Overview: The record is a 53-nucleotide RNA sequence from Gossypium raimondii, which matches "Plastid-atpF group II-D1 intron" in Rfam. On this family, see Richter et al., Plant Commun 2023: "Retrograde signaling in plants: A critical review focusing on the GUN pathway and beyond". Rfam describes the family as follows. Plastid atpF is a non-coding RNA (ncRNA) recognised in plastids. The base pairs follow the family's consensus structure, which was predicted with LocARNA. The family has 49 seed sequences and 1,372 matches in Rfam 15.1. A search with the family's covariance model found it, with a score of 61 bits. The source organism's lineage runs through Eukaryota, Tracheophyta, Malvales, Malvoideae and Gossypium.
RNA sequence: AAAUGUUUUUUCGAUGUAAAACACUCAUGUCGAUAAAACGAUUUGAGCCCCUU
Numbered sequence: 001a002a003a004u005g006u007u008u009u010u011u012c013g014a015u016g017u018a019a020a021a022c023a024c025u026c027a028u029g030u031c032g033a034u035a036a037a038a039c040g041a042u043u044u045g046a047g048c049c050c051c052u053u
Base pairs, nucleotide, nucleotide: 011033012032013031014030015029016028017027